[Rfam]
RNA sequence: AAUUGUUACUGGCAAACUUAUUGAAAAAUAAGGACGCAAAGCCUUGGGUCUACAGAGAUAAUCCACGAUUGCCAGGCUGCAUUA
Numbered sequence: 001a002a003u004u005g006u007u008a009c010u011g012g013c014a015a016a017c018u019u020a021u022u023g024a025a026a027a028a029u030a031a032g033g034a035c036g037c038a039a040a041g042c043c044u045u046g047g048g049u050c051u052a053c054a055g056a057g058a059u060a061a062u063c064c065a066c067g068a069u070u071g072c073c074a075g076g077c078u079g080c081a082u083u084a
Stems, first nucleotide, its partner, number of pairs: 012037002017032006040078004045074003048069003055063002

Rfam assigns this 84-nucleotide RNA from Pectinatus cerevisiiphilus to the family "c-di-GMP-I riboswitch aptamer". A search with the family's covariance model found it, with a score of 71 bits. Pairs were carried over by alignment from the consensus structure, which is taken from published work.